Shown here is a 55-nucleotide RNA sequence from Leptolyngbya sp. BL0902, a member of the family "Nitrogen stress-induced RNA 1". Rfam 15.1 lists 962 matches to the family in 163 species. The family's RNA type in Rfam is small RNA. On this family, see Ionescu et al., J Mol Biol 2010: "Heterocyst-specific transcription of NsiR1, a non-coding RNA encoded in a tandem array of direct repeats in cyanobacteria".

RNA sequence: CGGUAGAUGCACCCUGAUUCAGACCUCCUGGCCCCAGCGGCGAGGAGGUUUUUCA
Dot-bracket structure: .(((......)))...........(((((.(((.....))).)))))........